[Rfam]
RNA sequence: AUACUUACCUGGACGGGGUCGACUAGGGAUCAAGAAGCCCAGUGGCCUAGGUCAGUGGCCUGCAUUGCACAUGGCGGGUGCGCUGGCUUACCAUCUCCCCAAGUGGGAGAGUGGACGUCAUAAUUUGUGGUAGAGGGGGUACGCGUUCGCGCGGCCCCUG
Numbered sequence: 001a002u003a004c005u006u007a008c009c010u011g012g013a014c015g016g017g018g019u020c021g022a023c024u025a026g027g028g029a030u031c032a033a034g035a036a037g038c039c040c041a042g043u044g045g046c047c048u049a050g051g052u053c054a055g056u057g058g059c060c061u062g063c064a065u066u067g068c069a070c071a072u073g074g075c076g077g078g079u080g081c082g083c084u085g086g087c088u089u090a091c092c093a094u095c096u097c098c099c100c101a102a103g104u105g106g107g108a109g110a111g112u113g114g115a116c117g118u119c120a121u122a123a124u125u126u127g128u129g130g131u132a133g134a135g136g137g138g139g140u141a142c143g144c145g146u147u148c149g150c151g152c153g154g155c156c157c158c159u160g
Base pairs, nucleotide, nucleotide: 012119013118014117015116016048017047018046019045020044021043023042024041026039027038049089050088051087053086055083056082057081060078061077062075063074091114092113093112094110095109096108098106099105135159136158137157138156139155142153143152144151145150
U1 spliceosomal RNA: a 160-nucleotide RNA from Zea mays.
The family's consensus secondary structure is taken from published work.
The match comes from Rfam's covariance-model search (133 bits).
It is annotated as a spliceosomal small nuclear RNA.
About the family: U1 is a small nuclear RNA (snRNA) component of the spliceosome (involved in pre-mRNA splicing). Its 5' end forms complementary base pairs with the 5' splice junction, thus defining the 5' donor site of an intron. There are significant differences in sequence and secondary structure between metazoan and yeast U1 snRNAs, the latter being much longer (568 nucleotides as compared to 164 nucleotides in human).